[Rfam]
RNA sequence: UGAGUAACUUGGUUUAGCCUCUCCUAGGCUUUGUCUGUAUGCAGAGGACGGAGACAUAGCCUAGAAUAGGUUAGGUCAGGGCUCAAUU
Numbered sequence: 001u002g003a004g005u006a007a008c009u010u011g012g013u014u015u016a017g018c019c020u021c022u023c024c025u026a027g028g029c030u031u032u033g034u035c036u037g038u039a040u041g042c043a044g045a046g047g048a049c050g051g052a053g054a055c056a057u058a059g060c061c062u063a064g065a066a067u068a069g070g071u072u073a074g075g076u077c078a079g080g081g082c083u084c085a086a087u088u
Base pairs, nucleotide, nucleotide: 012076013075014074015073016072017071018070019069020068027061028060029059030058032056033055034054035053036052

mir-282 microRNA precursor family: an 88-nucleotide sequence. A search with the family's covariance model found it, with a score of 68 bits. For this family Rfam cites "Direct sequencing and expression analysis of a large number of miRNAs in Aedes aegypti and a multi-species survey of novel mosquito miRNAs" (Li et al., BMC Genomics, 2009). Pairs were carried over by alignment from the consensus structure, which was predicted with RNAalifold. Gene Ontology terms of the family: miRNA-mediated post-transcriptional gene silencing and RISC complex.